PrrF RNA: a 151-nucleotide sequence from Pseudomonas fulva. Taxonomically the source falls in Pseudomonas fulva (Bacteria, Gammaproteobacteria, Pseudomonadaceae, Pseudomonas). The family's consensus secondary structure is taken from published work. For this family Rfam cites "The Pseudomonas aeruginosa PrrF1 and PrrF2 small regulatory RNAs (sRNAs) promote 2-alkyl-4-quinolone production through redundant regulation of the antR mRNA" (Djapgne et al., J Bacteriol, 2018). Rfam classes the family as a small RNA. Rfam describes the family as follows. PrrF RNA is a small RNA involved in iron homeostasis and is found exclusively in Pseudomonas species.
RNA sequence: UUGACUAAUAAUCGAGAAUGACUAUUAUCUACAUCACCAGCCGCGAGGCUGGUUGGAUAACCUGAAUGCUUCCUGGUCGGACGCUUCCAGUUUAUCUCCUCAUCAGGCUAAUCACGGUUAUUGACCCGGCUUUUUGCCGGGUCUUUUUUUG
Numbered sequence: 001u002u003g004a005c006u007a008a009u010a011a012u013c014g015a016g017a018a019u020g021a022c023u024a025u026u027a028u029c030u031a032c033a034u035c036a037c038c039a040g041c042c043g044c045g046a047g048g049c050u051g052g053u054u055g056g057a058u059a060a061c062c063u064g065a066a067u068g069c070u071u072c073c074u075g076g077u078c079g080g081a082c083g084c085u086u087c088c089a090g091u092u093u094a095u096c097u098c099c100u101c102a103u104c105a106g107g108c109u110a111a112u113c114a115c116g117g118u119u120a121u122u123g124a125c126c127c128g129g130c131u132u133u134u135u136g137c138c139g140g141g142u143c144u145u146u147u148u149u150u151g
Base pairs, nucleotide, nucleotide: 034055036053037052038051039050040049041048042047062090063089064088065085067083068082069079098107099106100105123143124142125141126140127139128138129137130136